About this RNA
Shown here is a 116-nucleotide RNA from Zobellia galactanivorans, a member of the family "Bacteroidete tryptophan peptide leader RNA". By type it is a cis-regulatory leader. Its family is annotated with regulation of gene expression and S-adenosylmethionine metabolic process in the Gene Ontology.

[Rfam]
RNA sequence: UGAUUUCUAUAUUUGACCCAAUGAACAGAAAUAACGUAAAUACUUGGUGGUGGAACAACUCUCGACAGACAUCGUGAGCUGAGCAUCAUUGUAGUAAAACUAUAUAAAGGCUUGUC
Dot-bracket structure: ...................................((...((((.((.((((...((.(((..((......))..))).))..)))).))..))))..))................